This 129-nucleotide RNA from Erinaceus europaeus belongs to the Rfam family "Small nucleolar RNA SNORA3/SNORA45 family".
A reference for the family is Huttenhofer et al. (2001), "RNomics: an experimental approach that identifies 201 candidates for novel, small, non-messenger RNAs in mouse", EMBO J.
Rfam's curators write: The members of this family belong to the H/ACA class of snoRNAs which are thought to guide the sites of modification of uridines to pseudouridines. This family includes mouse snoMBI-28 and human homologues ACA3 (SNORA3) and ACA3-2 (SNORA45). Both ACA3 and ACA3-2 share the same host gene. MBI-28, ACA3 and ACA3-2 are all predicted to guide the pseudouridylation of residues in 28S rRNA.
It is annotated as an H/ACA-box small nucleolar RNA.
Lineage of the source: Eukaryota > Deuterostomia > Euteleostomi > Amniota > Erinaceus.
The family's consensus secondary structure was predicted with RNAalifold.
RNA sequence: AUUGAAACCAGAGUCAUCUUUGGUACCAUCUUUUGUCUUAGUGUGCUAGGGUCCUUGGAGGGUCACUGCUGACCUUAUUCUCUUGCUGUGGCCUUCCUGGCAUAGUCAGUCACCAGGGCAGGGGCAUGC
Numbered sequence: 001a002u003u004g005a006a007a008c009c010a011g012a013g014u015c016a017u018c019u020u021u022g023g024u025a026c027c028a029u030c031u032u033u034u035g036u037c038u039u040a041g042u043g044u045g046c047u048a049g050g051g052u053c054c055u056u057g058g059a060g061g062g063u064c065a066c067u068g069c070u071g072a073c074c075u076u077a078u079u080c081u082c083u084u085g086c087u088g089u090g091g092c093c094u095u096c097c098u099g100g101c102a103u104a105g106u107c108a109g110u111c112a113c114c115a116g117g118g119c120a121g122g123g124g125c126a127u128g129c
Stems, first nucleotide, its partner, number of pairs: 002058004007052003012047002015045003018041002022037004069121003073117003082109002085106001087104004092099001